[Rfam]
RNA sequence: UCGGGAGAGGUUCUCUAGCUCAACCCUCUAUAAAAAACUAAGGGAAU
Numbered sequence: 001u002c003g004g005g006a007g008a009g010g011u012u013c014u015c016u017a018g019c020u021c022a023a024c025c026c027u028c029u030a031u032a033a034a035a036a037a038c039u040a041a042g043g044g045a046a047u
Stems, first nucleotide, its partner, number of pairs: 006029005
Background: PreQ1 (pre queuosine) riboswitch aptamer: a 47-nucleotide RNA sequence from Pontibacillus halophilus. Pairs were carried over by alignment from the consensus structure. On this family, see Klein et al., Nat Struct Mol Biol 2009: "Cocrystal structure of a class I preQ1 riboswitch reveals a pseudoknot recognizing an essential hypermodified nucleobase". Rfam links the family to the GO term queuosine biosynthetic process. Rfam's curators write: This family is a bacterial riboswitch that binds to the metabolite preQ1, an intermediate in the biosynthesis of the modified nucleoside queuosine from GTP. One example of this riboswitch is located in the leader of the Bacillus subtilis ykvJKLM (queCDEF) operon which encodes four genes necessary for queuosine production. PreQ1 binding to the riboswitch aptamer is thought to induce premature transcription termination within the leader to down-regulate expression of these genes.